[Rfam]
RNA sequence: GGGUUAAUGCUAAUCGUGAUAGGGGUUGUGCUCUGACAGGGACUCCUGCGGGUUAGCAUUAGCCC
Numbered sequence: 001g002g003g004u005u006a007a008u009g010c011u012a013a014u015c016g017u018g019a020u021a022g023g024g025g026u027u028g029u030g031c032u033c034u035g036a037c038a039g040g041g042a043c044u045c046c047u048g049c050g051g052g053u054u055a056g057c058a059u060u061a062g063c064c065c
Base pairs, nucleotide, nucleotide: 004062005061006060007059008058009057010056011055012054013053014052020048021047022046023045025043026042027041

Record summary: The family of this 65-nucleotide sequence from Lepisosteus oculatus is "mir-155 microRNA precursor family". Lineage of the source: Eukaryota > Bilateria > Craniata > Teleostomi > Lepisosteus. The family's consensus secondary structure was predicted with RNAalifold. The family has 25 seed sequences and 647 matches in Rfam 15.1.